[Rfam]
Rfam assigns this 125-nucleotide sequence from Heterocephalus glaber to the family "Small nucleolar RNA SNORA27". The match comes from Rfam's covariance-model search (112 bits). About the family: ACA27 is a member of the H/ACA class of snoRNA that guide the sites of modification of uridines to pseudouridines. Gene Ontology terms of the family: nucleolus and RNA processing. Lineage of the source: Eukaryota > Eumetazoa > Amniota > Euarchontoglires > Heterocephalus. Clan: SNORA27 clan. The family has 24 seed sequences and 819 matches in Rfam 15.1.
RNA sequence: ACACCCCCUGUCACUUUGCCAAUUGCACUUACAUCUUUAUUAGUCAUUCAAGUGGGGCGAAGGAAAGAUCUUUUGAAAACAGGCAAAUUGAGUAUUUGUCUUGUAAACUUUCAGGGGAAAUAAAU
Dot-bracket structure: ...............................(.(((...((.(....).))...))).).........((((((.....(((((((((.....)))))))).).........)))))).......